[Rfam]
RNA sequence: UCCCUUGCGUGCCGAAACGGCGGCGCCUAUAUUCGUGGGGUUCGGGUUCGCCCGGACUAUGGACAUAAACGCGCAGGUAAUAAGCGGAUCGGACCCGGGGGCGGUACCCGGCGGCUCCACCAGAAUCCCUCGUUGGGGGCACAUGGGGCCGAAACAGGAUCGACGAACGUCUAAAGCUGUUUGCUUUGUCUCGGUGAGCUACCACCGUCAUCGGUGCAAAAUGUACAGUUGCCAACGACAACCGUGCUCCGGUGGCUCUGGCUGCGUAAGCAGCUCGGGUAACCGAAACUUAAGCCCUUCCGCCUAGCAGCGUAAGGCGGGGCCCGCAGGAGCCUGGCAACAGAAUCCUGCACC
Numbered sequence: 001u002c003c004c005u006u007g008c009g010u011g012c013c014g015a016a017a018c019g020g021c022g023g024c025g026c027c028u029a030u031a032u033u034c035g036u037g038g039g040g041u042u043c044g045g046g047u048u049c050g051c052c053c054g055g056a057c058u059a060u061g062g063a064c065a066u067a068a069a070c071g072c073g074c075a076g077g078u079a080a081u082a083a084g085c086g087g088a089u090c091g092g093a094c095c096c097g098g099g100g101g102c103g104g105u106a107c108c109c110g111g112c113g114g115c116u117c118c119a120c121c122a123g124a125a126u127c128c129c130u131c132g133u134u135g136g137g138g139g140c141a142c143a144u145g146g147g148g149c150c151g152a153a154a155c156a157g158g159a160u161c162g163a164c165g166a167a168c169g170u171c172u173a174a175a176g177c178u179g180u181u182u183g184c185u186u187u188g189u190c191u192c193g194g195u196g197a198g199c200u201a202c203c204a205c206c207g208u209c210a211u212c213g214g215u216g217c218a219a220a221a222u223g224u225a226c227a228g229u230u231g232c233c234a235a236c237g238a239c240a241a242c243c244g245u246g247c248u249c250c251g252g253u254g255g256c257u258c259u260g261g262c263u264g265c266g267u268a269a270g271c272a273g274c275u276c277g278g279g280u281a282a283c284c285g286a287a288a289c290u291u292a293a294g295c296c297c298u299u300c301c302g303c304c305u306a307g308c309a310g311c312g313u314a315a316g317g318c319g320g321g322g323c324c325c326g327c328a329g330g331a332g333c334c335u336g337g338c339a340a341c342a343g344a345a346u347c348c349u350g351c352a353c354c
Stems, first nucleotide, its partner, number of pairs: 040057007061191005071184002073180004085169002089166003095111005112151007192207004198217002201215003320335004326351006
RNA: Alphaproteobacteria transfer-messenger RNA